[Rfam]
RNA sequence: AAUUACCAAUAUGAUACUUGGCUAAGGGUCAAGUUGGUGACUUUUUUAAUCUCUCUCCGGACCUAACAAUUACGCCCCCAAAUAAGAGCUUGAAUACUAGAAGAAAAGCCUGACCCUAACAGAUUAGUGAUACCUAAAAAUUGUGGUCAUUUAUUUCUAUCUUUCCA
Numbered sequence: 001a002a003u004u005a006c007c008a009a010u011a012u013g014a015u016a017c018u019u020g021g022c023u024a025a026g027g028g029u030c031a032a033g034u035u036g037g038u039g040a041c042u043u044u045u046u047u048a049a050u051c052u053c054u055c056u057c058c059g060g061a062c063c064u065a066a067c068a069a070u071u072a073c074g075c076c077c078c079c080a081a082a083u084a085a086g087a088g089c090u091u092g093a094a095u096a097c098u099a100g101a102a103g104a105a106a107a108g109c110c111u112g113a114c115c116c117u118a119a120c121a122g123a124u125u126a127g128u129g130a131u132a133c134c135u136a137a138a139a140a141u142u143g144u145g146g147u148c149a150u151u152u153a154u155u156u157c158u159a160u161c162u163u164u165c166c167a
Stems, first nucleotide, its partner, number of pairs: 126164002129161003136156003
Dot-bracket structure: .............................................................................................................................((.(((....(((...............)))..))).))...